[Rfam]
RNA sequence: AUGAAGCACUAGGGGAGCCACUGGCUGAGAGAGAUUCCUUGACCCUUUGAACCUGAUCUAGUUUGUACUAGCGUAGGGAAGUGCUAUAGCUCAUAU
Numbered sequence: 001a002u003g004a005a006g007c008a009c010u011a012g013g014g015g016a017g018c019c020a021c022u023g024g025c026u027g028a029g030a031g032a033g034a035u036u037c038c039u040u041g042a043c044c045c046u047u048u049g050a051a052c053c054u055g056a057u058c059u060a061g062u063u064u065g066u067a068c069u070a071g072c073g074u075a076g077g078g079a080a081g082u083g084c085u086a087u088a089g090c091u092c093a094u095a096u
Base pairs, nucleotide, nucleotide: 006084007083008082009081010080011046012045013044014043016040017025018024019023032039033038052077053076054075055074058071059070060069061068
RNA: TPP riboswitch aptamer (THI element)